ybhL leader: a 66-nucleotide RNA from Mesorhizobium sp. LSHC420B00. This family is a putative regulatory RNA structure that is found upstream of an uncharacterized membrane protein in alpha-proteobacteria. The family's RNA type in Rfam is cis-regulatory leader. The literature on the family includes a 2005 paper in Genome Biol by Corbino et al., "Evidence for a second class of S-adenosylmethionine riboswitches and other regulatory RNA motifs in alpha-proteobacteria". Pairs were carried over by alignment from the consensus structure.

[Rfam]
RNA sequence: CAGGCAUGCUGGAGCCCCGCCAGCGGCGCCUGGGUUCAAAAGGACCUGACACCGGACGGGGCAGAA
Numbered sequence: 001c002a003g004g005c006a007u008g009c010u011g012g013a014g015c016c017c018c019g020c021c022a023g024c025g026g027c028g029c030c031u032g033g034g035u036u037c038a039a040a041a042g043g044a045c046c047u048g049a050c051a052c053c054g055g056a057c058g059g060g061g062c063a064g065a066a
Stems, first nucleotide, its partner, number of pairs: 014062006024054003031048004